[Rfam]
mir-223 microRNA precursor family: a 106-nucleotide RNA sequence from Otolemur garnettii. Rfam 15.1 lists 674 matches to the family in 638 species. The family's consensus secondary structure was predicted with RNAalifold. Its family is annotated with miRNA-mediated post-transcriptional gene silencing and RISC complex in the Gene Ontology.

RNA sequence: UUGGCCUCCUGCAGUGCCACACUCUGUGUAUUUGACAGGCUGAGUGGAACACUCAGUUUAAUAGAGUGUCAGUUUGUCAAAUACCCCAAGUGCGGCAUAUGCUGAA
Numbered sequence: 001u002u003g004g005c006c007u008c009c010u011g012c013a014g015u016g017c018c019a020c021a022c023u024c025u026g027u028g029u030a031u032u033u034g035a036c037a038g039g040c041u042g043a044g045u046g047g048a049a050c051a052c053u054c055a056g057u058u059u060a061a062u063a064g065a066g067u068g069u070c071a072g073u074u075u076g077u078c079a080a081a082u083a084c085c086c087c088a089a090g091u092g093c094g095g096c097a098u099a100u101g102c103u104g105a106a
Stems, first nucleotide, its partner, number of pairs: 020092004026086001028084014049069003053065002